[Rfam]
RNA: Small nucleolar RNA SNORA65
RNA sequence: CACCUGACCAGUAUUGUUGGCUGGUGCAAUCCAGUGGUGAGCCGACAGUGAGCCCCAGCUUUUAGGAAACAGGGCUGUCCUACAUGUGGAUGGCUCUGUGCCGAAAGCAUGGGAACAG
Numbered sequence: 001c002a003c004c005u006g007a008c009c010a011g012u013a014u015u016g017u018u019g020g021c022u023g024g025u026g027c028a029a030u031c032c033a034g035u036g037g038u039g040a041g042c043c044g045a046c047a048g049u050g051a052g053c054c055c056c057a058g059c060u061u062u063u064a065g066g067a068a069a070c071a072g073g074g075c076u077g078u079c080c081u082a083c084a085u086g087u088g089g090a091u092g093g094c095u096c097u098g099u100g101c102c103g104a105a106a107g108c109a110u111g112g113g114a115a116c117a118g
Base pairs, nucleotide, nucleotide: 007025008024009023010022011021012019013018053113054112055111057110058108059107060106061105065102066101070098071097072096073095074094075093078090079089080088